RNA sequence: GCCCUGGGCUUGUGCUCGGGGAGUCAGUGGUGGAUUCUGACCCCCAUGCACCCCUGCAGGUCCCUGGAAUCACUGGCCUCAUCCUUCACCCCUGCCAGCCACACUUGCCCUGUGCCU
Numbered sequence: 001g002c003c004c005u006g007g008g009c010u011u012g013u014g015c016u017c018g019g020g021g022a023g024u025c026a027g028u029g030g031u032g033g034a035u036u037c038u039g040a041c042c043c044c045c046a047u048g049c050a051c052c053c054c055u056g057c058a059g060g061u062c063c064c065u066g067g068a069a070u071c072a073c074u075g076g077c078c079u080c081a082u083c084c085u086u087c088a089c090c091c092c093u094g095c096c097a098g099c100c101a102c103a104c105u106u107g108c109c110c111u112g113u114g115c116c117u
Stems, first nucleotide, its partner, number of pairs: 001115002004112001006110004011103004017094005023089002026086002029083005039077001041076002046070002049067001
Dot-bracket structure: ((.(.((((.((((..(((((.((.((.(((((.....(.((...((.(.................).))....))).))))).)).))))))).....))))...)))).).))..
RNA: mir-1257 microRNA precursor family